Shown here is a 58-nucleotide RNA from Mangrovactinospora gilvigrisea, a member of the family "msiK RNA". The family's consensus secondary structure is taken from published work. The source organism's lineage runs through Bacteria, Actinomycetota, Actinomycetes, Kitasatosporales and Mangrovactinospora. A search with the family's covariance model found it, with a score of 54 bits.

[Rfam]
RNA sequence: GGCCUCCAUCCUUUACUCGGAUCGUCCGGCACGUUCCUGCCGGUGAAGGGGAGAUUGA
Numbered sequence: 001g002g003c004c005u006c007c008a009u010c011c012u013u014u015a016c017u018c019g020g021a022u023c024g025u026c027c028g029g030c031a032c033g034u035u036c037c038u039g040c041c042g043g044u045g046a047a048g049g050g051g052a053g054a055u056u057g058a
Base pairs, nucleotide, nucleotide: 009050010049011048012047013046014045015044026043027042028041029040030039031038